Record summary:
A member of the RNA family "Vertebrate telomerase RNA" from Chelydra serpentina, 406 nucleotides long. Rfam links the family to the GO terms telomerase activity, telomere maintenance via telomerase and telomerase catalytic core complex. By type it is a non-coding RNA gene. The family's consensus secondary structure is taken from published work. Taxonomically the source falls in Chelydra (Eukaryota, Tetrapoda, Archelosauria, Chelydroidea). About the family: Telomerase is a ribonucleoprotein reverse transcriptase that synthesises telomeric DNA. Telomerase RNAs differ greatly in sequence and structure between vertebrates, ciliates and yeasts, but they share a 5' pseudoknot structure close to the template sequence.

RNA sequence: UGCGGCGGCAGGUGGGGGCUCAGUCUUUCUAACCCUAAGCGAAAUGUGACCCCUCCCCGCUGCAGCCGUCCGCUGUUUUACUCGCUGACUUUCAGCGGACGGGGGGAGCGGGCGGAGACGCCAACCAAAAAACGUCAGCGAGGGGCCCUCCCCUCCCACGCCGACCUGGGCCUGUGGUGGGGCCCGCCAGCGAAGUCCCCGCCGCCCCGCCCCGGUGAGGCCGCGGUCAGCCGGCUCGCGCCACUGCUGCCGCGAAGAGUUCGUCUCUGUCAGCCUCGGGGGCGGCCGGGGUGGAAGGGCGGGUCCCGAGCCCGUCGGCCGGGAGAGCAAACGUGAGCGGCAGCCCCUGCGCCACCGCCCUCCCCUAAGCUGUGGGGCCCGCGGUCGGGGCUGCGCUCAGACACGC
Number, nucleotide and partner (000 for none) at each position: 001u000002g000003c000004g161005g159006c000007g157008g156009c000010a154011g153012g152013u000014g150015g149016g000017g147018g146019c145020u144021c143022a000023g000024u000025c000026u000027u000028u000029c000030u000031a000032a000033c000034c000035c000036u000037a000038a000039g000040c000041g000042a000043a000044a000045u000046g000047u000048g000049a000050c000051c000052c000053c108054u107055c106056c105057c104058c000059g000060c000061u000062g000063c000064a000065g000066c000067c101068g100069u099070c098071c097072g096073c095074u094075g093076u000077u000078u000079u000080a000081c000082u000083c000084g139085c138086u137087g136088a135089c134090u132091u131092u130093c075094a074095g073096c072097g071098g070099a069100c068101g067102g000103g000104g057105g056106g055107a054108g053109c000110g000111g000112g000113c000114g000115g000116a000117g000118a000119c000120g000121c000122c000123a000124a000125c000126c000127a000128a000129a000130a092131a091132a090133c000134g089135u088136c087137a086138g085139c084140g000141a000142g000143g021144g020145g019146c018147c017148c000149u015150c014151c000152c012153c011154u010155c000156c008157c007158a000159c005160g000161c004162c000163g000164a000165c000166c322167u321168g320169g319170g000171c317172c000173u000174g000175u000176g000177g000178u000179g000180g306181g305182g304183c303184c302185c301186g300187c299188c298189a000190g000191c000192g000193a000194a000195g000196u291197c290198c289199c288200c000201g286202c285203c000204g000205c281206c280207c279208c278209g277210c000211c000212c000213c000214g000215g000216u000217g000218a000219g000220g000221c000222c254223g253224c252225g251226g250227u000228c249229a248230g247231c246232c000233g242234g241235c240236u000237c000238g000239c000240g235241c234242c233243a000244c000245u000246g231247c230248u229249g228250c226251c225252g224253c223254g222255a000256a268257g267258a266259g265260u000261u000262c000263g000264u000265c259266u258267c257268u256269g000270u000271c000272a000273g000274c000275c000276u000277c209278g208279g207280g206281g205282g000283c000284g000285g202286c201287c000288g199289g198290g197291g196292u000293g000294g000295a000296a000297g000298g188299g187300c186301g185302g184303g183304u182305c181306c180307c000308g000309a000310g000311c000312c000313c000314g000315u000316c000317g171318g000319c169320c168321g167322g166323g000324a000325g000326a000327g000328c000329a000330a000331a000332c000333g000334u000335g398336a397337g396338c395339g000340g394341c393342a392343g391344c390345c389346c388347c000348u000349g000350c000351g000352c000353c000354a000355c384356c383357g382358c381359c000360c000361u000362c377363c376364c375365c374366u000367a000368a000369g000370c000371u000372g000373u000374g365375g364376g363377g362378c000379c000380c000381g358382c357383g356384g355385u000386c000387g000388g346389g345390g344391c343392u342393g341394c340395g338396c337397u336398c335399a000400g000401a000402c000403a000404c000405g000406c000